[Rfam]
RNA sequence: UGUAAGAACGGAGGAGCACUAAAGAUCAGUAAUCUAAAUUGAAAUCUUGAGGAAGAUAUGAUUUAGAUGAAAGGCGAUAGUGCCGAAGAAUAUGAGUUUUCCUCAACUCAUACUUCUGGUUAUAAAGAAAAUAUCUUUAUAAUUGUCACGCUUUUGUGGAGAGCCGUUCAGCUA
Numbered sequence: 001u002g003u004a005a006g007a008a009c010g011g012a013g014g015a016g017c018a019c020u021a022a023a024g025a026u027c028a029g030u031a032a033u034c035u036a037a038a039u040u041g042a043a044a045u046c047u048u049g050a051g052g053a054a055g056a057u058a059u060g061a062u063u064u065a066g067a068u069g070a071a072a073g074g075c076g077a078u079a080g081u082g083c084c085g086a087a088g089a090a091u092a093u094g095a096g097u098u099u100u101c102c103u104c105a106a107c108u109c110a111u112a113c114u115u116c117u118g119g120u121u122a123u124a125a126a127g128a129a130a131a132u133a134u135c136u137u138u139a140u141a142a143u144u145g146u147c148a149c150g151c152u153u154u155u156g157u158g159g160a161g162a163g164c165c166g167u168u169c170a171g172c173u174a
Stems, first nucleotide, its partner, number of pairs: 006169006016083006024075001032068008087117004091112008118144011146159005
Lysine riboswitch aptamer: a 174-nucleotide RNA from Oceanotoga teriensis.
It scores 99 bits against the family's covariance model.
The family's consensus secondary structure is taken from published work.